The record is a 76-nucleotide RNA from Sus scrofa, which matches "mir-34 microRNA precursor family" in Rfam. Clan: mir-34 clan. Pairs were carried over by alignment from the consensus structure, which was predicted with RNAalifold. NCBI's taxonomy places the organism under Eukaryota, Sarcopterygii, Eutheria, Artiodactyla, Sus. From the family's description: Human mir-34a was discovered computationally and later experimentally verified. The mature sequence is excised from the 5' arm of the hairpin. Rfam links the family to the GO terms miRNA-mediated post-transcriptional gene silencing and RISC complex. A reference for the family is Lim et al. (2003), "Vertebrate microRNA genes", Science.

RNA sequence: UUUCUUUGGCAGUGUCUUAGCUGGUUGUUGUGAGUAAUAGCAAAGGAAGCAAUCAGCAGCAUCCUGCCCUAGAACA
Numbered sequence: 001u002u003u004c005u006u007u008g009g010c011a012g013u014g015u016c017u018u019a020g021c022u023g024g025u026u027g028u029u030g031u032g033a034g035u036a037a038u039a040g041c042a043a044a045g046g047a048a049g050c051a052a053u054c055a056g057c058a059g060c061a062u063c064c065u066g067c068c069c070u071a072g073a074a075c076a
Base pairs, nucleotide, nucleotide: 002074003073004072005071008068009067011065012064014062015061018059020057022055023054024053025052026051027050028049029048